Fluoride riboswitch aptamer (crcB RNA motif): a 63-nucleotide RNA from Pseudomonas jinjuensis. The base pairs follow the family's consensus structure, which is taken from published work.

RNA sequence: UUCGCGCAAGGAGAUGGCAUUCCUCCUCAUAACCGCCCCCGUGCUGAUGAUGCCUACGUGAAC
Numbered sequence: 001u002u003c004g005c006g007c008a009a010g011g012a013g014a015u016g017g018c019a020u021u022c023c024u025c026c027u028c029a030u031a032a033c034c035g036c037c038c039c040c041g042u043g044c045u046g047a048u049g050a051u052g053c054c055u056a057c058g059u060g061a062a063c
Stems, first nucleotide, its partner, number of pairs: 010026004016054006035044002